This 160-nucleotide RNA from Cuscuta campestris belongs to the Rfam family "U1 spliceosomal RNA". The organism belongs to Cuscuta sect. Cleistogrammica, within Eukaryota. The family's RNA type in Rfam is spliceosomal small nuclear RNA. Pairs were carried over by alignment from the consensus structure, which is taken from published work. Rfam describes the family as follows. U1 is a small nuclear RNA (snRNA) component of the spliceosome (involved in pre-mRNA splicing).

RNA sequence: AUACUUACCUGGACGGGGUCAAUGGGCGAUCAGGAAGGCCCAUGGCCUAGGUUGAUGACUUCCAUCGCACUUUGGAAGGGUGUCCGCCUAAGGUCUACCCAAGUGGUGGAGCCUACAUCAUAAUUUGUGGCAGCGGGGGCCAGCGUUCGCGCGGCCCCUA
Numbered sequence: 001a002u003a004c005u006u007a008c009c010u011g012g013a014c015g016g017g018g019u020c021a022a023u024g025g026g027c028g029a030u031c032a033g034g035a036a037g038g039c040c041c042a043u044g045g046c047c048u049a050g051g052u053u054g055a056u057g058a059c060u061u062c063c064a065u066c067g068c069a070c071u072u073u074g075g076a077a078g079g080g081u082g083u084c085c086g087c088c089u090a091a092g093g094u095c096u097a098c099c100c101a102a103g104u105g106g107u108g109g110a111g112c113c114u115a116c117a118u119c120a121u122a123a124u125u126u127g128u129g130g131c132a133g134c135g136g137g138g139g140c141c142a143g144c145g146u147u148c149g150c151g152c153g154g155c156c157c158c159u160a
Stems, first nucleotide, its partner, number of pairs: 012119002015116001016048006023042005049089003053086001055083003059079003062075002091114003094110003098106002135159006143152003